[Rfam]
Shown here is an 82-nucleotide sequence from Achromobacter sp. AONIH1, a member of the family "Pseudomonas sRNA P9". The organism belongs to Achromobacter, within Bacteria. Pairs were carried over by alignment from the consensus structure, which was predicted with RNAalifold. It scores 50 bits against the family's covariance model. For this family Rfam cites "Identification of 17 Pseudomonas aeruginosa sRNAs and prediction of sRNA-encoding genes in 10 diverse pathogens using the bioinformatic tool sRNAPredict2" (Livny et al., Nucleic Acids Res, 2006). Rfam describes the family as follows. This small RNA (sRNA) was computationally identified in the genome of the opportunistic pathogen Pseudomonas aeruginosa and its expression verified by northern blot analysis.
RNA sequence: UCGAUUAUUCCCGCCAUUGCGACCUUGGCGGGCUAGCGCGCAUCCAUCCCUCGUGCAAGCAACCCGCCGCAAGGCGGGUUUC
Numbered sequence: 001u002c003g004a005u006u007a008u009u010c011c012c013g014c015c016a017u018u019g020c021g022a023c024c025u026u027g028g029c030g031g032g033c034u035a036g037c038g039c040g041c042a043u044c045c046a047u048c049c050c051u052c053g054u055g056c057a058a059g060c061a062a063c064c065c066g067c068c069g070c071a072a073g074g075c076g077g078g079u080u081u082c
Stems, first nucleotide, its partner, number of pairs: 011031006061080008